[Rfam]
RNA: ZMP/ZTP riboswitch aptamer (pfl RNA motif)
RNA sequence: GGCGGUUAAGGCGACUGGCGCGGCGAGGUGGAAGAAACCACCGGGGAGCGACCGAGAUCGUGCACCGCGCGCCUGGGUGCACAUC
Numbered sequence: 001g002g003c004g005g006u007u008a009a010g011g012c013g014a015c016u017g018g019c020g021c022g023g024c025g026a027g028g029u030g031g032a033a034g035a036a037a038c039c040a041c042c043g044g045g046g047a048g049c050g051a052c053c054g055a056g057a058u059c060g061u062g063c064a065c066c067g068c069g070c071g072c073c074u075g076g077g078u079g080c081a082c083a084u085c
Stems, first nucleotide, its partner, number of pairs: 003054005011049002015045002017073005028041004062080005